[Rfam]
RNA sequence: UGAGUCGGCCAGGCGGUCGCGUCGGUGGGCAACCACCGCCGAGGAACGUCCGGGCUCCACAGGGCAAGGUGGUGGGCAACACCCACCCGGGGUGACCCGCGGGACAGUGCCACAGAGAACAGACCGCCGGUGCCUUGCGCACCGGUAAGGGUGAAACGGUGGUGUAAGAGACCACCAGCGAUCCGGGUGACCGGAUCGGCUCGGUAAACCCCACCCGGAGCAAGCUCAGACAGGAUGCGUCUUCAGGGCGGCCCGCCCGAGCAUCCGGGUAGAGCGCUGGAGGGCGUCGGCAACGGCGCUCGUAGAUGGAUGACCGUCGCUUCGUCACCGGUAACGGUGGGGGAGAACAGAACCCGGCGUAUCGGCCGACUCAUCCC
Numbered sequence: 001u002g003a004g005u006c007g008g009c010c011a012g013g014c015g016g017u018c019g020c021g022u023c024g025g026u027g028g029g030c031a032a033c034c035a036c037c038g039c040c041g042a043g044g045a046a047c048g049u050c051c052g053g054g055c056u057c058c059a060c061a062g063g064g065c066a067a068g069g070u071g072g073u074g075g076g077c078a079a080c081a082c083c084c085a086c087c088c089g090g091g092g093u094g095a096c097c098c099g100c101g102g103g104a105c106a107g108u109g110c111c112a113c114a115g116a117g118a119a120c121a122g123a124c125c126g127c128c129g130g131u132g133c134c135u136u137g138c139g140c141a142c143c144g145g146u147a148a149g150g151g152u153g154a155a156a157c158g159g160u161g162g163u164g165u166a167a168g169a170g171a172c173c174a175c176c177a178g179c180g181a182u183c184c185g186g187g188u189g190a191c192c193g194g195a196u197c198g199g200c201u202c203g204g205u206a207a208a209c210c211c212c213a214c215c216c217g218g219a220g221c222a223a224g225c226u227c228a229g230a231c232a233g234g235a236u237g238c239g240u241c242u243u244c245a246g247g248g249c250g251g252c253c254c255g256c257c258c259g260a261g262c263a264u265c266c267g268g269g270u271a272g273a274g275c276g277c278u279g280g281a282g283g284g285c286g287u288c289g290g291c292a293a294c295g296g297c298g299c300u301c302g303u304a305g306a307u308g309g310a311u312g313a314c315c316g317u318c319g320c321u322u323c324g325u326c327a328c329c330g331g332u333a334a335c336g337g338u339g340g341g342g343g344a345g346a347a348c349a350g351a352a353c354c355c356g357g358c359g360u361a362u363c364g365g366c367c368g369a370c371u372c373a374u375c376c377c
Stems, first nucleotide, its partner, number of pairs: 001373010011362001012318007020041002023038006046360003050357005055220004062254004068215004072086005087101001088099004102211002107209002109205003124150002126146008158176006178200001179198008224275004233266006246258004282301008
RNA: Bacterial RNase P class A
Organism: Phycicoccus elongatus